[Rfam]
RNA sequence: CCGGCUCCGGUUCACGUCCCCAGCACCUGGUGGGAGACGACCCGGCGGCC
Number, nucleotide and partner (000 for none) at each position: 001c000002c000003g050004g049005c048006u000007c045008c044009g043010g042011u000012u000013c000014a000015c039016g038017u037018c036019c034020c033021c032022a031023g000024c000025a000026c000027c000028u000029g000030g000031u022032g021033g020034g019035a000036g018037a017038c016039g015040a000041c000042c010043c009044g008045g007046c000047g000048g005049c004050c003

Rfam assigns this 50-nucleotide sequence to the family "L31-Actinobacteria ribosomal protein leader". The sequence is in the family's curated seed alignment.